A member of the RNA family "Group II catalytic intron D1-D4-3" from Paenibacillus stellifer, 171 nucleotides long. NCBI's taxonomy places the organism under Bacteria, Bacillota, Caryophanales, Paenibacillaceae, Paenibacillus.
RNA sequence: UCCAUCGUGAGGUGGAAUCUGAAGGAAGCCGGAGGCAAAAGCACGGGCCAAGGUACACGAACUGGAUUCGAGGCUGUGCCAGUCGGAUGAGUCACCACUACAUGACGAAAUCCAAAGCCGCUAAGGGCUGGUGCGGUAAACUCCAGUGGUCGCGGGCGGAAAGAUGACGUU
Numbered sequence: 001u002c003c004a005u006c007g008u009g010a011g012g013u014g015g016a017a018u019c020u021g022a023a024g025g026a027a028g029c030c031g032g033a034g035g036c037a038a039a040a041g042c043a044c045g046g047g048c049c050a051a052g053g054u055a056c057a058c059g060a061a062c063u064g065g066a067u068u069c070g071a072g073g074c075u076g077u078g079c080c081a082g083u084c085g086g087a088u089g090a091g092u093c094a095c096c097a098c099u100a101c102a103u104g105a106c107g108a109a110a111u112c113c114a115a116a117g118c119c120g121c122u123a124a125g126g127g128c129u130g131g132u133g134c135g136g137u138a139a140a141c142u143c144c145a146g147u148g149g150u151c152g153c154g155g156g157c158g159g160a161a162a163g164a165u166g167a168c169g170u171u
Base pairs, nucleotide, nucleotide: 001016002015003014004013005012006011028171030169031168036163041157042156044154045153046151047150048149049148050147062146063145064144065143066142067140073137074136075135077133078132079131080130081129082128083127085113086112087111088110091106092105093104094103